A member of the RNA family "mir-1299 microRNA precursor family" from Pan troglodytes, 83 nucleotides long. The family's consensus secondary structure was predicted with RNAalifold. Its family is annotated with RISC complex and miRNA-mediated post-transcriptional gene silencing in the Gene Ontology. A search with the family's covariance model found it, with a score of 96 bits. Rfam 15.1 lists 113 matches to the family in 8 species.
RNA sequence: CCUCAUAGCAGUGUUCUGGAAUCCUAUUUGAGGGACAAACAUUCAGACCAUCGUAACAGUGUUCUGGAAUCCUAUGUGAGGGA
Numbered sequence: 001c002c003u004c005a006u007a008g009c010a011g012u013g014u015u016c017u018g019g020a021a022u023c024c025u026a027u028u029u030g031a032g033g034g035a036c037a038a039a040c041a042u043u044c045a046g047a048c049c050a051u052c053g054u055a056a057c058a059g060u061g062u063u064c065u066g067g068a069a070u071c072c073u074a075u076g077u078g079a080g081g082g083a
Stems, first nucleotide, its partner, number of pairs: 001081007010073002013070010024059002027056001029053002033049002